RNA sequence: UUCUUACACCUAGUGUGAACCGGGCCUUGUUGAAGACCCUAAGCACAAUUUUUGCAGCCCUGUCCUUCUUUGGUCAGGGUA
Numbered sequence: 001u002u003c004u005u006a007c008a009c010c011u012a013g014u015g016u017g018a019a020c021c022g023g024g025c026c027u028u029g030u031u032g033a034a035g036a037c038c039c040u041a042a043g044c045a046c047a048a049u050u051u052u053u054g055c056a057g058c059c060c061u062g063u064c065c066u067u068c069u070u071u072g073g074u075c076a077g078g079g080u081a
Stems, first nucleotide, its partner, number of pairs: 022039003026035003057080006064073002